This 436-nucleotide RNA from Dipodomys ordii belongs to the Rfam family "Vertebrate telomerase RNA". The match comes from Rfam's covariance-model search (288 bits). About the family: Telomerase is a ribonucleoprotein reverse transcriptase that synthesises telomeric DNA. Telomerase RNAs differ greatly in sequence and structure between vertebrates, ciliates and yeasts, but they share a 5' pseudoknot structure close to the template sequence. Vertebrate telomerase RNAs have a 3' H/ACA snoRNA-like domain. NCBI's taxonomy places the organism under Eukaryota, Mammalia, Rodentia, Dipodomyinae, Dipodomys.

RNA sequence: AGGGCCCGGGAGGGGCCUGGUCGCGCUUUUCUAACCCUAAAGCCGCAGGUUGUAGGCGCCGAGCUUUCGUGUCCCCGCGCGCUGUUUUUCUGGCUGGCUUUCAGCGGGCGGAAAAGCCUUGGCCUACAGCCGUCCACCUUCCAGUCCGUAGCCAAAUAAAAAAAUGCCAGCUUCCGGCCGGUCCACCCCUCCCGGGGUCCUGCGGGCCCGGCCGCCGGCCCGGUCCCCGCGCCUCGCCCUAGGCCGCGGUCGGCCCGGGGCCUCUUCGGAGGUGCCCAUUGCCGCCGCGAAGAGUUCGUCUCUGUCAGCCGCGGGGGUCCGCGCGGGCCGGGCCGCGGUCGGCCUCGCGUCCGCAGGGACAGUAACGGAGCCGUUCCCUUCGCUCGGUGCGCUUCCCGGAGCUGUGGGAUGAGCACCCGGGUCGGCUCCCACAAAC
Numbered sequence: 001a002g003g004g005c006c007c008g009g010g011a012g013g014g015g016c017c018u019g020g021u022c023g024c025g026c027u028u029u030u031c032u033a034a035c036c037c038u039a040a041a042g043c044c045g046c047a048g049g050u051u052g053u054a055g056g057c058g059c060c061g062a063g064c065u066u067u068c069g070u071g072u073c074c075c076c077g078c079g080c081g082c083u084g085u086u087u088u089u090c091u092g093g094c095u096g097g098c099u100u101u102c103a104g105c106g107g108g109c110g111g112a113a114a115a116g117c118c119u120u121g122g123c124c125u126a127c128a129g130c131c132g133u134c135c136a137c138c139u140u141c142c143a144g145u146c147c148g149u150a151g152c153c154a155a156a157u158a159a160a161a162a163a164a165u166g167c168c169a170g171c172u173u174c175c176g177g178c179c180g181g182u183c184c185a186c187c188c189c190u191c192c193c194g195g196g197g198u199c200c201u202g203c204g205g206g207c208c209c210g211g212c213c214g215c216c217g218g219c220c221c222g223g224u225c226c227c228c229g230c231g232c233c234u235c236g237c238c239c240u241a242g243g244c245c246g247c248g249g250u251c252g253g254c255c256c257g258g259g260g261c262c263u264c265u266u267c268g269g270a271g272g273u274g275c276c277c278a279u280u281g282c283c284g285c286c287g288c289g290a291a292g293a294g295u296u297c298g299u300c301u302c303u304g305u306c307a308g309c310c311g312c313g314g315g316g317g318u319c320c321g322c323g324c325g326g327g328c329c330g331g332g333c334c335g336c337g338g339u340c341g342g343c344c345u346c347g348c349g350u351c352c353g354c355a356g357g358g359a360c361a362g363u364a365a366c367g368g369a370g371c372c373g374u375u376c377c378c379u380u381c382g383c384u385c386g387g388u389g390c391g392c393u394u395c396c397c398g399g400a401g402c403u404g405u406g407g408g409a410u411g412a413g414c415a416c417c418c419g420g421g422u423c424g425g426c427u428c429c430c431a432c433a434a435a436c
Stems, first nucleotide, its partner, number of pairs: 005196011019179005063117005076110003080106005093171006099164003199357007212338004217334005226327007233315005245289005251284004257277003291303004368428006375421003387416004394409004

Rfam classes the family as a non-coding RNA gene.